This 109-nucleotide sequence from Desulforamulus reducens belongs to the Rfam family "TPP riboswitch aptamer (THI element)". About the family: Vitamin B(1) in its active form thiamin pyrophosphate (TPP) is an essential coenzyme that is synthesised by coupling of pyrimidine and thiazole moieties in bacteria.
RNA sequence: AAAUAUUGGCCGGGGAGCUGGGAAAGCUGGCUGAGAGGGGGCCCUAGGGGUACCGACCCGUAAACCUGAUCUGGGUAAUGCCAGCGGAGGGAAAGAAUCUUCUAACUUG
Numbered sequence: 001a002a003a004u005a006u007u008g009g010c011c012g013g014g015g016a017g018c019u020g021g022g023a024a025a026g027c028u029g030g031c032u033g034a035g036a037g038g039g040g041g042c043c044c045u046a047g048g049g050g051u052a053c054c055g056a057c058c059c060g061u062a063a064a065c066c067u068g069a070u071c072u073g074g075g076u077a078a079u080g081c082c083a084g085c086g087g088a089g090g091g092a093a094a095g096a097a098u099c100u101u102c103u104a105a106c107u108u109g
Base pairs, nucleotide, nucleotide: 006097007096011060012059013058014057017031018030019029020028021027038054039053041051042050043049044048065090066089067088071084072083073082074081
It scores 62 bits against the family's covariance model.